This 36-nucleotide RNA belongs to the Rfam family "DUF805b RNA". Clan: DUF805 clan. The family's RNA type in Rfam is cis-regulatory element.

[Rfam]
RNA sequence: AGGGACGAAGCCGAAAAUCCCUUAUCAGAGUAGGCA
Dot-bracket structure: .((((....[[[.....))))...........]]].
The base pairs follow the family's consensus structure, which is taken from published work.